RNA sequence: CUUGGGUGGUUGGAAGGCAGUGUCUUGUUAGCUGGUUGAUUUGUGUUUGCCAGCUUACCUGCUGCUGCCCUCCAACUGCCCAUG
Numbered sequence: 001c002u003u004g005g006g007u008g009g010u011u012g013g014a015a016g017g018c019a020g021u022g023u024c025u026u027g028u029u030a031g032c033u034g035g036u037u038g039a040u041u042u043g044u045g046u047u048u049g050c051c052a053g054c055u056u057a058c059c060u061g062c063u064g065c066u067g068c069c070c071u072c073c074a075a076c077u078g079c080c081c082a083u084g
Base pairs, nucleotide, nucleotide: 001084003082004081005080006079007078008077009076010075011074012073013072016069017068018067019066020065021064022062023061027058028057030055031054032053033052034051035050036049
A member of the RNA family "mir-449 microRNA precursor family" from Myripristis murdjan, 84 nucleotides long. A search with the family's covariance model found it, with a score of 60 bits. Pairs were carried over by alignment from the consensus structure, which was predicted with RNAalifold.